Rfam assigns this 304-nucleotide RNA from Cucumis melo to the family "Plant signal recognition particle RNA". Rfam links the family to the GO terms SRP-dependent cotranslational protein targeting to membrane, signal sequence recognition and signal recognition particle, endoplasmic reticulum targeting. The family's consensus secondary structure is taken from published work.
RNA sequence: GCCGAGCUCGGUAAUGUGAGCUUGUAAUCCAAAUGGAGGCAUUAAUGUGGUUGGAAGCGGGCUCAACCCAUUUGGUAGGGUCUCUUUGGGAAGACGUACUAGCCCGCCCAUUCCAAGUAGGAAGUUGGGCCUUUGGCUUUGGGCGAAGGCCGAGAGUUAAUUGCCCUUAAAGUGGGGGACACCGCGUGAGGCUGGUCUCACAGAGCAGCGUUACCCCCCGCUUCUGUCGGUGGAAGGAUAACGGGCCGGUUCCCUUGGUCCCAAUAAUACCCGAUGUGUAGGCCUUUGUCUAACAACCACUUUU
Numbered sequence: 001g002c003c004g005a006g007c008u009c010g011g012u013a014a015u016g017u018g019a020g021c022u023u024g025u026a027a028u029c030c031a032a033a034u035g036g037a038g039g040c041a042u043u044a045a046u047g048u049g050g051u052u053g054g055a056a057g058c059g060g061g062c063u064c065a066a067c068c069c070a071u072u073u074g075g076u077a078g079g080g081u082c083u084c085u086u087u088g089g090g091a092a093g094a095c096g097u098a099c100u101a102g103c104c105c106g107c108c109c110a111u112u113c114c115a116a117g118u119a120g121g122a123a124g125u126u127g128g129g130c131c132u133u134u135g136g137c138u139u140u141g142g143g144c145g146a147a148g149g150c151c152g153a154g155a156g157u158u159a160a161u162u163g164c165c166c167u168u169a170a171a172g173u174g175g176g177g178g179a180c181a182c183c184g185c186g187u188g189a190g191g192c193u194g195g196u197c198u199c200a201c202a203g204a205g206c207a208g209c210g211u212u213a214c215c216c217c218c219c220g221c222u223u224c225u226g227u228c229g230g231u232g233g234a235a236g237g238a239u240a241a242c243g244g245g246c247c248g249g250u251u252c253c254c255u256u257g258g259u260c261c262c263a264a265u266a267a268u269a270c271c272c273g274a275u276g277u278g279u280a281g282g283c284c285u286u287u288g289u290c291u292a293a294c295a296a297c298c299a300c301u302u303u304u
Stems, first nucleotide, its partner, number of pairs: 001040003004023007028037003044303002047300007056291002058288003061283003065279001069276004074271004078262003082258002089254002093251002099249002102246005108237002111235005117228001120225006127166004133160008142151003167172001174218005184211004192203003
By type it is a non-coding RNA gene. NCBI's taxonomy places the organism under Eukaryota, Euphyllophyta, Cucurbitaceae, Benincaseae, Cucumis melo subsp. agrestis.